Annotation:
The family of this 132-nucleotide sequence from Hydrogenophaga taeniospiralis is "Y RNA-like". The base pairs follow the family's consensus structure, which is taken from published work. Rfam classes the family as a small RNA. About the family: In Deinococcus radiodurans Rsr is tethered via Y RNA to the exoribonuclease PNPase and channels single-stranded RNA into the PNPase cavity. It scores 70 bits against the family's covariance model.

[Rfam]
RNA sequence: GCGGCGAAUGCCGGUGGAACUACAGGCUAUUAACCUCGUGGUCGUGGGUUCGAAUCCCGCCGGUCCGUCAAACGACCGUAGCUCAGUCUGGUAGAGCACGAAAAACCUUUCACCAACCCUUGUCGUCACGGG
Numbered sequence: 001g002c003g004g005c006g007a008a009u010g011c012c013g014g015u016g017g018a019a020c021u022a023c024a025g026g027c028u029a030u031u032a033a034c035c036u037c038g039u040g041g042u043c044g045u046g047g048g049u050u051c052g053a054a055u056c057c058c059g060c061c062g063g064u065c066c067g068u069c070a071a072a073c074g075a076c077c078g079u080a081g082c083u084c085a086g087u088c089u090g091g092u093a094g095a096g097c098a099c100g101a102a103a104a105a106c107c108u109u110u111c112a113c114c115a116a117c118c119c120u121u122g123u124c125g126u127c128a129c130g131g132g
Base pairs, nucleotide, nucleotide: 003127004126005125006124007123013114014113015112016111017110018109019108037100038099039098044060045059046058047057048056051091061078062077063076064075065074081097082096083095084094
Dot-bracket structure: ..(((((.....(((((((.................(((....(((((..[....)))))(((((........)))))..((((......]..))))))).......)))))))........))))).....

The source organism's lineage runs through Bacteria, Pseudomonadati, Betaproteobacteria, Comamonadaceae and Hydrogenophaga taeniospiralis.